Shown here is a 69-nucleotide RNA sequence from Danionella cerebrum, a member of the family "mir-34 microRNA precursor family". Rfam's curators write: Human mir-34a was discovered computationally and later experimentally verified. The mature sequence is excised from the 5' arm of the hairpin. On this family, see Lim et al., Science 2003: "Vertebrate microRNA genes".
[Rfam]
RNA sequence: GGUUUGUAGGCAGUGUUGUUAGCUGAUUAUUUCAUAAACUAUAAUCACUGACUAUACUGCCAACACAAC
Numbered sequence: 001g002g003u004u005u006g007u008a009g010g011c012a013g014u015g016u017u018g019u020u021a022g023c024u025g026a027u028u029a030u031u032u033c034a035u036a037a038a039c040u041a042u043a044a045u046c047a048c049u050g051a052c053u054a055u056a057c058u059g060c061c062a063a064c065a066c067a068a069c
Base pairs, nucleotide, nucleotide: 003067005065006064009061010060012058013057014056015055016054018052019051020050021049022048024047025046026045027044028043029042030041
Pairs were carried over by alignment from the consensus structure, which was predicted with RNAalifold. Gene Ontology terms of the family: miRNA-mediated post-transcriptional gene silencing and RISC complex. The match comes from Rfam's covariance-model search (56 bits).